RNA: Lysine riboswitch aptamer
RNA sequence: UCAACAAACGGAGGUGCAACCAAAAUUAGUAACUCAUUUAUCGCCUGGGUAGGCUUGGAAUGAGUGAAAGGUGCGGUUGCCGAAGGAAUUAAAGCUUACCCACUUUAAUUACCUGGUUGUAUGGGAAAUACUCAUAUGACUGUCGCAUAUGCGGAGAGCCGUUUGAAAU
Numbered sequence: 001u002c003a004a005c006a007a008a009c010g011g012a013g014g015u016g017c018a019a020c021c022a023a024a025a026u027u028a029g030u031a032a033c034u035c036a037u038u039u040a041u042c043g044c045c046u047g048g049g050u051a052g053g054c055u056u057g058g059a060a061u062g063a064g065u066g067a068a069a070g071g072u073g074c075g076g077u078u079g080c081c082g083a084a085g086g087a088a089u090u091a092a093a094g095c096u097u098a099c100c101c102a103c104u105u106u107a108a109u110u111a112c113c114u115g116g117u118u119g120u121a122u123g124g125g126a127a128a129u130a131c132u133c134a135u136a137u138g139a140c141u142g143u144c145g146c147a148u149a150u151g152c153g154g155a156g157a158g159c160c161g162u163u164u165g166a167a168a169u
Stems, first nucleotide, its partner, number of pairs: 006164006016080006024072001032065008084114003087110008115141011143154004